Shown here is a 76-nucleotide RNA from Crocodylus porosus, a member of the family "Mammalian CPEB3 ribozyme". The organism belongs to Crocodylus, within Eukaryota. It scores 43 bits against the family's covariance model.

RNA sequence: AGAGCAAGUUCGAGGCCACAGCAGAAGGGCUCACGGCGCGGCCCUGUCAAAUUCCAGCAAAUCAGCAAAUGCUGCU
Numbered sequence: 001a002g003a004g005c006a007a008g009u010u011c012g013a014g015g016c017c018a019c020a021g022c023a024g025a026a027g028g029g030c031u032c033a034c035g036g037c038g039c040g041g042c043c044c045u046g047u048c049a050a051a052u053u054c055c056a057g058c059a060a061a062u063c064a065g066c067a068a069a070u071g072c073u074g075c076u
Base pairs, nucleotide, nucleotide: 012044014043015042016041017040020076021075022074023073024072026070027039029037048065051062052061053060